[Rfam]
RNA sequence: CACAAAUAGCGCAUACUACUUCGUAUAAUCCCGGGGAUUGGCCUGGGAGUCUCUACGAGAUCACCCUAAUGAUCUGGCUACGAAGAGGAGAAGGCUGAGC
Numbered sequence: 001c002a003c004a005a006a007u008a009g010c011g012c013a014u015a016c017u018a019c020u021u022c023g024u025a026u027a028a029u030c031c032c033g034g035g036g037a038u039u040g041g042c043c044u045g046g047g048a049g050u051c052u053c054u055a056c057g058a059g060a061u062c063a064c065c066c067u068a069a070u071g072a073u074c075u076g077g078c079u080a081c082g083a084a085g086a087g088g089a090g091a092a093g094g095c096u097g098a099g100c
Stems, first nucleotide, its partner, number of pairs: 019085007029048007058075006
The family of this 100-nucleotide RNA from Paenibacillus xylanivorans is "Purine riboswitch aptamer". Taxonomically the source falls in Paenibacillus (Bacteria, Bacillati, Bacillota, Caryophanales).